Source information: A member of the RNA family "RNase MRP" from Microthlaspi erraticum, 249 nucleotides long. Its Rfam clan is "RNaseP clan".

RNA sequence: UCGUCACUGGAAGAAGUGAUUGGGCUAUGGGCUUGUCAAAGUCUAGGCCCAGGAAAGUCGCCGGGCCACCUUCCGUAGAGAUGCGGCCUCGGUAACGAGAGAGUCUUGUGCUUGGAGAGACACAAUCGGGCUGAGACUCGUGUGUGGAGCCUUCAUGGUCUCUCCGGCGAAGAUAUUAUGGCCGAUUAACAGUAAUUCACUUGGGGUCCUUCACUGGAUUCAAACAGAACGGGGCUUAUUCCAGUGACG
Numbered sequence: 001u002c003g004u005c006a007c008u009g010g011a012a013g014a015a016g017u018g019a020u021u022g023g024g025c026u027a028u029g030g031g032c033u034u035g036u037c038a039a040a041g042u043c044u045a046g047g048c049c050c051a052g053g054a055a056a057g058u059c060g061c062c063g064g065g066c067c068a069c070c071u072u073c074c075g076u077a078g079a080g081a082u083g084c085g086g087c088c089u090c091g092g093u094a095a096c097g098a099g100a101g102a103g104u105c106u107u108g109u110g111c112u113u114g115g116a117g118a119g120a121c122a123c124a125a126u127c128g129g130g131c132u133g134a135g136a137c138u139c140g141u142g143u144g145u146g147g148a149g150c151c152u153u154c155a156u157g158g159u160c161u162c163u164c165c166g167g168c169g170a171a172g173a174u175a176u177u178a179u180g181g182c183c184g185a186u187u188a189a190c191a192g193u194a195a196u197u198c199a200c201u202u203g204g205g206g207u208c209c210u211u212c213a214c215u216g217g218a219u220u221c222a223a224a225c226a227g228a229a230c231g232g233g234g235c236u237u238a239u240u241c242c243a244g245u246g247a248c249g
Stems, first nucleotide, its partner, number of pairs: 002249010014202006022050004029044006055237003059234001061232002074085004088099004103174003109169003113166007128152004139144001204221006

NCBI's taxonomy places the organism under Eukaryota, Viridiplantae, Spermatophyta, Gunneridae, Microthlaspi. The match comes from Rfam's covariance-model search (88 bits).